[Rfam]
RNA: Small nucleolar RNA SNORA26
Organism: Bos taurus
RNA sequence: GUGCCCUUUUAAGGUUCGCAGUGCCUUAGGAGGCUAACACAGAAGGGUAAAGACAGUCUCCGUAAAAUCCAGAGAAGAGACUGUGGAACUCCUCUUUGGAUCCUGGCUGGAGUCACAGCU
Numbered sequence: 001g002u003g004c005c006c007u008u009u010u011a012a013g014g015u016u017c018g019c020a021g022u023g024c025c026u027u028a029g030g031a032g033g034c035u036a037a038c039a040c041a042g043a044a045g046g047g048u049a050a051a052g053a054c055a056g057u058c059u060c061c062g063u064a065a066a067a068u069c070c071a072g073a074g075a076a077g078a079g080a081c082u083g084u085g086g087a088a089c090u091c092c093u094c095u096u097u098g099g100a101u102c103c104u105g106g107c108u109g110g111a112g113u114c115a116c117a118g119c120u
Stems, first nucleotide, its partner, number of pairs: 002049009014038003017033001019030001056114001058112005069099007077091003082087001
Dot-bracket structure: .(((((((((...((((.(..........)..)..)))..)))))))))......(.(((((......(((((((.(((..(....).))).)))))))........))))).)......